TPP riboswitch aptamer (THI element): a 120-nucleotide sequence from Phocoenobacter uteri. A search with the family's covariance model found it, with a score of 64 bits.
RNA sequence: ACGUUCUCAUUGGGGUGCGUGCAAGCGGUGAUAUUUUUUUACCUUUUUGCAAAAGCUGAGAAAUACCCAUAGAACCUGAUCUGAGUAAUAUCAGCGUAGGGAUUUGAGGCAGUUCAAUUU
Numbered sequence: 001a002c003g004u005u006c007u008c009a010u011u012g013g014g015g016u017g018c019g020u021g022c023a024a025g026c027g028g029u030g031a032u033a034u035u036u037u038u039u040u041a042c043c044u045u046u047u048u049g050c051a052a053a054a055g056c057u058g059a060g061a062a063a064u065a066c067c068c069a070u071a072g073a074a075c076c077u078g079a080u081c082u083g084a085g086u087a088a089u090a091u092c093a094g095c096g097u098a099g100g101g102a103u104u105u106g107a108g109g110c111a112g113u114u115c116a117a118u119u120u
Stems, first nucleotide, its partner, number of pairs: 006108004011069004016063001017056002020053001075100004081094004
Dot-bracket structure: .....((((.((((.(((.(................................).))......)..)))).....((((..((((......))))..))))....))))............
NCBI's taxonomy places the organism under Bacteria, Pseudomonadota, Gammaproteobacteria, Pasteurellaceae, Phocoenobacter. Pairs were carried over by alignment from the consensus structure, which is taken from published work.